[Rfam]
RNA sequence: CUGGAGAGAGGUCACCGGGCCCGCCCGGGACGAUCCGCCGACGGGGCACGCGGCCAACGCCGCUGAACUCUCAGGCAAAAGGACAG
Numbered sequence: 001c002u003g004g005a006g007a008g009a010g011g012u013c014a015c016c017g018g019g020c021c022c023g024c025c026c027g028g029g030a031c032g033a034u035c036c037g038c039c040g041a042c043g044g045g046g047c048a049c050g051c052g053g054c055c056a057a058c059g060c061c062g063c064u065g066a067a068c069u070c071u072c073a074g075g076c077a078a079a080a081g082g083a084c085a086g
Base pairs, nucleotide, nucleotide: 001086002085003084010035011034012033013032037076038075039074040072041071044070045069046068050063051062052061053060054059
Background
The record is an 86-nucleotide RNA, which matches "Glycine riboswitch aptamer" in Rfam. A search with the family's covariance model found it, with a score of 39 bits. Rfam describes the family as follows. This family represents the bacterial glycine riboswitch. Its family is annotated with glycine biosynthetic process in the Gene Ontology.